[Rfam]
RNA: ssNA-helicase RNA
Nucleotides: 048
Stems, first nucleotide, its partner, number of pairs: 001030010
Number, partner (000 for none) and nucleotide at each position: 001030u002029u003028u004027c005026c006025a007024a008023a009022a010021g011000c012000c013000a014000g015000u016000a017000u018000u019000a020000c021010c022009u023008u024007u025006u026005g027004g028003a029002a030001a031000c032000a033000u034000u035000u036000g037000u038000a039000u040000u041000u042000u043000g044000u045000a046000g047000c048000a